[Rfam]
RNA sequence: GGCCUCCUGGUGCUCGCCCACAGGCUGUUCUUACACUGACUCCGGAGGAAGAGGAGGUAGAGUAAACCCACCCCAUACACACCUCCACCCAGGCCCUGGGCCUGGUCUGUAUUAUGAAAUGGGGGCAUAGAA
Number, nucleotide and partner (000 for none) at each position: 001g000002g058003c057004c056005u055006c054007c053008u052009g000010g000011u000012g000013c000014u000015c000016g000017c000018c000019c000020a000021c000022a041023g040024g000025c000026u000027g034028u033029u000030c000031u000032u000033a028034c027035a000036c000037u000038g000039a000040c023041u022042c000043c000044g000045g000046a000047g000048g000049a000050a000051g000052a008053g007054g006055a005056g004057g003058u002059a000060g000061a000062g000063u000064a000065a000066a000067c000068c000069c000070a000071c124072c123073c122074c121075a120076u119077a000078c000079a000080c000081a000082c000083c000084u000085c109086c000087a000088c000089c105090c104091a103092g102093g101094c100095c000096c000097u000098g000099g000100g094101c093102c092103u091104g090105g089106u000107c000108u000109g085110u000111a000112u000113u000114a000115u000116g000117a000118a000119a076120u075121g074122g073123g072124g071125g000126c000127a000128u000129a000130g000131a000132a000
Small nucleolar RNA SNORA51: a 132-nucleotide sequence from Aotus nancymaae. Rfam links the family to the GO terms RNA processing and nucleolus. Taxonomically the source falls in Aotus (Eukaryota, Metazoa, Amniota, Mammalia). The base pairs follow the family's consensus structure, which was predicted with PFOLD. From the family's description: ACA51 is a member of the H/ACA class of snoRNA that guide the sites of modification of uridines to pseudouridines. The family's RNA type in Rfam is H/ACA-box small nucleolar RNA. A search with the family's covariance model found it, with a score of 87 bits.